[Rfam]
RNA: Eukaryotic large subunit ribosomal RNA, nucleotides 4168 to 4724
RNA sequence: UUUAGCCUUUCGGGAUUUGAAGCUAGAGGUGUCAGAAAAAUUACCCGAUCAGAUUAAGAUUGUGUACCUCAAGGGACUAGCCACUUACGCGGAUUAGGGUUCACAUCAGCUCUGGCAAGGUACAUCACAAUCAUCUGUUUGGAGUGGUAGUUUUUAACAGGCGGCGUGAAAAGCGUGUCACCGCCUAGUCUUGGGCCUUUCGGCUCAAGGCAAGACCGUCAAAUUGCCUGGACGUCCUGCCAGGCCAUCGAUACCACCCUGCCCGGGAAACCGAGGCAGCGGAACCCUGGGGAAACUCGGGGGCAUGGUAAAAAUUCGAUGGCUAGGGACGAUGGGCAGCCAAGUCCUACGGGCAUGUCAUGCCUAUGGAUGCAGUUCACAGACUAAAUGUCGGUCGGUCAUCGUUGGCAGAUGGCUUGAGAUAUAGUCGGGCCGCUCCGAGAGGAGAGCCCGUGGGAGGAGUCCGACCCGAGGUCGGACGAGAGCCCACGGGAGGUUGGGUAAUACUCGGUGGCGAGAGCCAGCCGAGGGCACUAUAGAGCGCCUCCAGCCUGGAC
Numbered sequence: 001u002u003u004a005g006c007c008u009u010u011c012g013g014g015a016u017u018u019g020a021a022g023c024u025a026g027a028g029g030u031g032u033c034a035g036a037a038a039a040a041u042u043a044c045c046c047g048a049u050c051a052g053a054u055u056a057a058g059a060u061u062g063u064g065u066a067c068c069u070c071a072a073g074g075g076a077c078u079a080g081c082c083a084c085u086u087a088c089g090c091g092g093a094u095u096a097g098g099g100u101u102c103a104c105a106u107c108a109g110c111u112c113u114g115g116c117a118a119g120g121u122a123c124a125u126c127a128c129a130a131u132c133a134u135c136u137g138u139u140u141g142g143a144g145u146g147g148u149a150g151u152u153u154u155u156a157a158c159a160g161g162c163g164g165c166g167u168g169a170a171a172a173g174c175g176u177g178u179c180a181c182c183g184c185c186u187a188g189u190c191u192u193g194g195g196c197c198u199u200u201c202g203g204c205u206c207a208a209g210g211c212a213a214g215a216c217c218g219u220c221a222a223a224u225u226g227c228c229u230g231g232a233c234g235u236c237c238u239g240c241c242a243g244g245c246c247a248u249c250g251a252u253a254c255c256a257c258c259c260u261g262c263c264c265g266g267g268a269a270a271c272c273g274a275g276g277c278a279g280c281g282g283a284a285c286c287c288u289g290g291g292g293a294a295a296c297u298c299g300g301g302g303g304c305a306u307g308g309u310a311a312a313a314a315u316u317c318g319a320u321g322g323c324u325a326g327g328g329a330c331g332a333u334g335g336g337c338a339g340c341c342a343a344g345u346c347c348u349a350c351g352g353g354c355a356u357g358u359c360a361u362g363c364c365u366a367u368g369g370a371u372g373c374a375g376u377u378c379a380c381a382g383a384c385u386a387a388a389u390g391u392c393g394g395u396c397g398g399u400c401a402u403c404g405u406u407g408g409c410a411g412a413u414g415g416c417u418u419g420a421g422a423u424a425u426a427g428u429c430g431g432g433c434c435g436c437u438c439c440g441a442g443a444g445g446a447g448a449g450c451c452c453g454u455g456g457g458a459g460g461a462g463u464c465c466g467a468c469c470c471g472a473g474g475u476c477g478g479a480c481g482a483g484a485g486c487c488c489a490c491g492g493g494a495g496g497u498u499g500g501g502u503a504a505u506a507c508u509c510g511g512u513g514g515c516g517a518g519a520g521c522c523a524g525c526c527g528a529g530g531g532c533a534c535u536a537u538a539g540a541g542c543g544c545c546u547c548c549a550g551c552c553u554g555g556a557c
Stems, first nucleotide, its partner, number of pairs: 001556005009550002
Dot-bracket structure: (((((...((..........................................................................................................................................................................................................................................................................................................................................................................................................................................................................................................................................................)).))))).